Small nucleolar RNA snR43: a 197-nucleotide sequence from Candidozyma pseudohaemuli.
[Rfam]
RNA sequence: CACUCCUGUUUCUGCCCUAAAUUCAUCCUCAUUGAAUUAUAGGUUCUGGUGAUGGAGAAGAUCAAGCCCGUGAACGGGCGUCAGCAAUCUGUCAAAUGUUUGUAACCUGCUGGCGUCUUUUUGCGGGAUCGUGUGGCUGGUCGGUGUUCGAAGAUGAUGCAUUUCUUGAUGCUAGUCGGCUGGCCUCCACUACAUUU
Numbered sequence: 001c002a003c004u005c006c007u008g009u010u011u012c013u014g015c016c017c018u019a020a021a022u023u024c025a026u027c028c029u030c031a032u033u034g035a036a037u038u039a040u041a042g043g044u045u046c047u048g049g050u051g052a053u054g055g056a057g058a059a060g061a062u063c064a065a066g067c068c069c070g071u072g073a074a075c076g077g078g079c080g081u082c083a084g085c086a087a088u089c090u091g092u093c094a095a096a097u098g099u100u101u102g103u104a105a106c107c108u109g110c111u112g113g114c115g116u117c118u119u120u121u122u123g124c125g126g127g128a129u130c131g132u133g134u135g136g137c138u139g140g141u142c143g144g145u146g147u148u149c150g151a152a153g154a155u156g157a158u159g160c161a162u163u164u165c166u167u168g169a170u171g172c173u174a175g176u177c178g179g180c181u182g183g184c185c186u187c188c189a190c191u192a193c194a195u196u197u
Stems, first nucleotide, its partner, number of pairs: 003057004016043004020038006067127008076118011133190004139185005153177002157173001159172005
The literature on the family includes a 1996 paper in Cell by Balakin et al., "The RNA world of the nucleolus: two major families of small RNAs defined by different box elements with related functions". NCBI's taxonomy places the organism under Eukaryota, Fungi, Ascomycota, Pichiomycetes, Candidozyma.